RNA: MIR2593 microRNA precursor family
RNA sequence: UUAUAAGAGACAAUUCACUUUUUAGGUUCAUUGGAUAAUUGAUGUAUAUGGUCUAUAAUAUAGAUCAAAUACAUCAGUUAUUCAAUGAACCUCAAAAAUGAAUUGUCUCCUAUAA
Numbered sequence: 001u002u003a004u005a006a007g008a009g010a011c012a013a014u015u016c017a018c019u020u021u022u023u024a025g026g027u028u029c030a031u032u033g034g035a036u037a038a039u040u041g042a043u044g045u046a047u048a049u050g051g052u053c054u055a056u057a058a059u060a061u062a063g064a065u066c067a068a069a070u071a072c073a074u075c076a077g078u079u080a081u082u083c084a085a086u087g088a089a090c091c092u093c094a095a096a097a098a099u100g101a102a103u104u105g106u107c108u109c110c111u112a113u114a115a
Stems, first nucleotide, its partner, number of pairs: 002114004007109001009107005015101003019097004024092002027089018049067004